Background:
The record is an 88-nucleotide RNA sequence from Carboxydocella thermautotrophica, which matches "c-di-GMP-I riboswitch aptamer" in Rfam. It scores 76 bits against the family's covariance model. About the family: GEMM was predicted in a large-scale screen for bacterial structured RNA regulatory elements. Genes associated with GEMM are involved in a diverse array of functions, including chemotaxis regulation, signal transduction, secretion and chitin. Pairs were carried over by alignment from the consensus structure, which is taken from published work.
[Rfam]
RNA sequence: AAAGGAAAAAGGCAAAACCAUCGAAAGGUGGUGACGCAAAGCUAAAGGGGCUACCGCAACUCCGUUGCCAGGCCAGCCAGCUGCCCGA
Numbered sequence: 001a002a003a004g005g006a007a008a009a010a011g012g013c014a015a016a017a018c019c020a021u022c023g024a025a026a027g028g029u030g031g032u033g034a035c036g037c038a039a040a041g042c043u044a045a046a047g048g049g050g051c052u053a054c055c056g057c058a059a060c061u062c063c064g065u066u067g068c069c070a071g072g073c074c075a076g077c078c079a080g081c082u083g084c085c086c087g088a
Stems, first nucleotide, its partner, number of pairs: 012037002017032006040082004047078002049074003056068004